[Rfam]
RNA sequence: CUGCAUCCACUGAUAGAUGGGGAACAGUCUGGGGUUCUUUGGUUCUUACUAAAAUGCAAAAGUAAAGAAUCCCUGCACGUUCUGCCUGGCUUUGUGGCAGCCCAGACUGAAUUGAGGAGCACAUCU
Numbered sequence: 001c002u003g004c005a006u007c008c009a010c011u012g013a014u015a016g017a018u019g020g021g022g023a024a025c026a027g028u029c030u031g032g033g034g035u036u037c038u039u040u041g042g043u044u045c046u047u048a049c050u051a052a053a054a055u056g057c058a059a060a061a062g063u064a065a066a067g068a069a070u071c072c073c074u075g076c077a078c079g080u081u082c083u084g085c086c087u088g089g090c091u092u093u094g095u096g097g098c099a100g101c102c103c104a105g106a107c108u109g110a111a112u113u114g115a116g117g118a119g120c121a122c123a124u125c126u
Base pairs, nucleotide, nucleotide: 002058003057004056005055006054011048012047015046016045017044022037023036024035025034070118071117072116074114075113078109081106082105083104084103086100087099088098090096
RNA: Small nucleolar RNA SNORA31
Organism: Jaculus jaculus